[Rfam]
RNA sequence: UUCUUAUCAAGAGCGGUGGAGGGACUGGCCCUAUGAAACCCGGCAACCAAUAUAACAUUUUGGUUAUAAUUUUUUAUAUAUGUUAUAUAUACUGGUGCUAAAUCCUGCAAUAAUUAUGUUUAAUUAUUGAAAGAUGAGAG
Numbered sequence: 001u002u003c004u005u006a007u008c009a010a011g012a013g014c015g016g017u018g019g020a021g022g023g024a025c026u027g028g029c030c031c032u033a034u035g036a037a038a039c040c041c042g043g044c045a046a047c048c049a050a051u052a053u054a055a056c057a058u059u060u061u062g063g064u065u066a067u068a069a070u071u072u073u074u075u076a077u078a079u080a081u082g083u084u085a086u087a088u089a090u091a092c093u094g095g096u097g098c099u100a101a102a103u104c105c106u107g108c109a110a111u112a113a114u115u116a117u118g119u120u121u122a123a124u125u126a127u128u129g130a131a132a133g134a135u136g137a138g139a140g
Base pairs, nucleotide, nucleotide: 001140002139003138004137005136006135007134008133013041015040016039017038021031022030023029025107027105028104042099043098044097045096047095048094050090051089052088053087054086103132108129109128110127111126112125113124114123115122
Dot-bracket structure: ((((((((....(.(((...(((.[.[[)))......))))((((.((.(((((...............................)))))...))))))...(]].]((((((((......))))))))..)))))))))